[Rfam]
A member of the RNA family "mir-1302 microRNA precursor family" from Myotis lucifugus, 52 nucleotides long. The family has 24 seed sequences and 16,160 matches in Rfam 15.1. The match comes from Rfam's covariance-model search (68 bits). Gene Ontology terms of the family: RISC complex and miRNA-mediated post-transcriptional gene silencing.
RNA sequence: AUUUUAGUGUAAGUAUGUCCCAUGCAAUUUUUGGAAUGUACUUAUACUAAAA
Numbered sequence: 001a002u003u004u005u006a007g008u009g010u011a012a013g014u015a016u017g018u019c020c021c022a023u024g025c026a027a028u029u030u031u032u033g034g035a036a037u038g039u040a041c042u043u044a045u046a047c048u049a050a051a052a
Base pairs, nucleotide, nucleotide: 006048007047008046009045010044011043012042014040015039016038018036020034021033022031